[Rfam]
RNA sequence: CGCCUCUCAAAGUGGCUGUGAAAUGUUACAUUUAAAUUCAUAUCACAGCCAGCUUUGAAGAGCGCUA
Numbered sequence: 001c002g003c004c005u006c007u008c009a010a011a012g013u014g015g016c017u018g019u020g021a022a023a024u025g026u027u028a029c030a031u032u033u034a035a036a037u038u039c040a041u042a043u044c045a046c047a048g049c050c051a052g053c054u055u056u057g058a059a060g061a062g063c064g065c066u067a
Stems, first nucleotide, its partner, number of pairs: 005061002007058006013051009024042003

mir-2 microRNA precursor family: a 67-nucleotide sequence from Pseudolycoriella hygida. Rfam links the family to the GO terms miRNA-mediated post-transcriptional gene silencing and RISC complex. A search with the family's covariance model found it, with a score of 68 bits. Taxonomically the source falls in Pseudolycoriella (Eukaryota, Dicondylia, Endopterygota, Bibionomorpha).